[Rfam]
RNA sequence: AUGAGAACACGGGGAGAGACUGCAUAUGCAGCGCCGAAGGAGCAAGCAACGUAGUUGUGAAUCUCUCAGGCAAAAGAACCCUUGUUUGACG
Dot-bracket structure: .....((((.(((......((((....)))).(((((..(((...((.........))....))))).))).......))).)))).....

Record summary:
A member of the RNA family "Glycine riboswitch aptamer" from Bacillus sp. FJAT-49711, 91 nucleotides long. The match comes from Rfam's covariance-model search (68 bits).